[Rfam]
RNA sequence: UAUGGGUGGGGAUUUUACAGCGCUUUUUUGAGAAAGCGCUGUAAUAUGCACACCCAUAUAUGAAAUUAUGGGUGGGCAUAUUACAGCGCUUUUGUGAGAAAGCGCUGUAAUAUGCUCACCCAUAUAUGA
Numbered sequence: 001u002a003u004g005g006g007u008g009g010g011g012a013u014u015u016u017a018c019a020g021c022g023c024u025u026u027u028u029u030g031a032g033a034a035a036g037c038g039c040u041g042u043a044a045u046a047u048g049c050a051c052a053c054c055c056a057u058a059u060a061u062g063a064a065a066u067u068a069u070g071g072g073u074g075g076g077c078a079u080a081u082u083a084c085a086g087c088g089c090u091u092u093u094g095u096g097a098g099a100a101a102g103c104g105c106u107g108u109a110a111u112a113u114g115c116u117c118a119c120c121c122a123u124a125u126a127u128g129a
Stems, first nucleotide, its partner, number of pairs: 003056006018041009068123011084107009
RNA: Small nucleolar RNA SNORA69
Organism: Cicer arietinum